Rfam assigns this 88-nucleotide RNA from Musca domestica to the family "mir-67 microRNA precursor family".
The match comes from Rfam's covariance-model search (81 bits).

RNA sequence: UCUUGCUUUGACUCACUCAACCUGGGUGUGAUGUGUGUAUUUCGUUUUGGCUAUCCAUCACAACCUCCUUGAGUGAGCGAUAGCAGGA
Number, nucleotide and partner (000 for none) at each position: 001u000002c000003u000004u000005g000006c000007u000008u080009u079010g078011a000012c077013u076014c075015a074016c073017u072018c071019a070020a069021c000022c000023u000024g065025g064026g000027u062028g061029u060030g059031a058032u057033g056034u000035g000036u000037g000038u000039a000040u000041u000042u000043c000044g000045u000046u000047u000048u000049g000050g000051c000052u000053a000054u000055c000056c033057a032058u031059c030060a029061c028062a027063a000064c025065c024066u000067c000068c000069u020070u019071g018072a017073g016074u015075g014076a013077g012078c010079g009080a008081u000082a000083g000084c000085a000086g000087g000088a000
The family has 33 seed sequences and 196 matches in Rfam 15.1.